[Rfam]
RNA sequence: AGCUUUGCGCAGUGGCAGUAUCGUAGCCAAUGAGGUUUAUCCGAGGCGCGAUUAUUGCUAAUUGAAAAAAAAGAAUAAAGUUUAGAAGACCCGUACUAUGUGAUUUCAGAACGUAUUAUAAAGCUGCAGUAACUGAGACACUGUGGUAGU
Numbered sequence: 001a002g003c004u005u006u007g008c009g010c011a012g013u014g015g016c017a018g019u020a021u022c023g024u025a026g027c028c029a030a031u032g033a034g035g036u037u038u039a040u041c042c043g044a045g046g047c048g049c050g051a052u053u054a055u056u057g058c059u060a061a062u063u064g065a066a067a068a069a070a071a072a073g074a075a076u077a078a079a080g081u082u083u084a085g086a087a088g089a090c091c092c093g094u095a096c097u098a099u100g101u102g103a104u105u106u107c108a109g110a111a112c113g114u115a116u117u118a119u120a121a122a123g124c125u126g127c128a129g130u131a132a133c134u135g136a137g138a139c140a141c142u143g144u145g146g147u148a149g150u
Stems, first nucleotide, its partner, number of pairs: 020052005026047003034042002093127003096123002099120006140150004
Background:
A member of the RNA family "U4 spliceosomal RNA" from Ovis aries, 150 nucleotides long. A search with the family's covariance model found it, with a score of 77 bits. It is annotated as a spliceosomal small nuclear RNA. From the family's description: U4 small nuclear RNA (U4 snRNA) is a component of the major U2-dependent spliceosome. The family has 177 seed sequences and 32,178 matches in Rfam 15.1.